Rfam assigns this 147-nucleotide RNA from Giardia duodenalis to the family "Small nucleolar RNA GlsR23".
RNA sequence: CUGGAUACUGACAACCGCGGCUGGUAACAAAAAAAUCGCCUUGUCGUCUCAUGCCUACGAUGGGCUAAAGAAGCACUGUGGCGAAACAUGCACUGGGUGGCCAUUGCGUCUGCGGUAGACCCGCCGAUUCCACAGCCCAGAAACAUC
Numbered sequence: 001c002u003g004g005a006u007a008c009u010g011a012c013a014a015c016c017g018c019g020g021c022u023g024g025u026a027a028c029a030a031a032a033a034a035a036u037c038g039c040c041u042u043g044u045c046g047u048c049u050c051a052u053g054c055c056u057a058c059g060a061u062g063g064g065c066u067a068a069a070g071a072a073g074c075a076c077u078g079u080g081g082c083g084a085a086a087c088a089u090g091c092a093c094u095g096g097g098u099g100g101c102c103a104u105u106g107c108g109u110c111u112g113c114g115g116u117a118g119a120c121c122c123g124c125c126g127a128u129u130c131c132a133c134a135g136c137c138c139a140g141a142a143a144c145a146u147c
Base pairs, nucleotide, nucleotide: 014116015115016114017113018112019111020110036084037083038082039081040080043076053065054064055063056062

The base pairs follow the family's consensus structure, which was predicted with WAR. Rfam links the family to the GO terms nucleolus and RNA processing. Taxonomically the source falls in Giardia duodenalis (Eukaryota, Metamonada, Hexamitidae, Giardiinae).